[Rfam]
RNA sequence: CUAUCAGAGUUUAUUGGCAUUCUGUCCACCUCCACUUUCUUCUCUUCUCUUCUCUCUCAAAGAGACACGUCAACCAUCCAUCCAUGGAGGUGGGCAUACUGCCAACUCAGUUCUGUUAG
Numbered sequence: 001c002u003a004u005c006a007g008a009g010u011u012u013a014u015u016g017g018c019a020u021u022c023u024g025u026c027c028a029c030c031u032c033c034a035c036u037u038u039c040u041u042c043u044c045u046u047c048u049c050u051u052c053u054c055u056c057u058c059a060a061a062g063a064g065a066c067a068c069g070u071c072a073a074c075c076a077u078c079c080a081u082c083c084a085u086g087g088a089g090g091u092g093g094g095c096a097u098a099c100u101g102c103c104a105a106c107u108c109a110g111u112u113c114u115g116u117u118a119g
Stems, first nucleotide, its partner, number of pairs: 011109001014105006023096011

The record is a 119-nucleotide RNA from Phaseolus vulgaris, which matches "MIR394 microRNA precursor family" in Rfam. On this family, see Jones-Rhoades and Bartel, Mol Cell 2004: "Computational identification of plant microRNAs and their targets, including a stress-induced miRNA". It scores 79 bits against the family's covariance model. Rfam 15.1 lists 724 matches to the family in 216 species. Gene Ontology terms of the family: RISC complex and miRNA-mediated post-transcriptional gene silencing. Pairs were carried over by alignment from the consensus structure, which was predicted with WAR.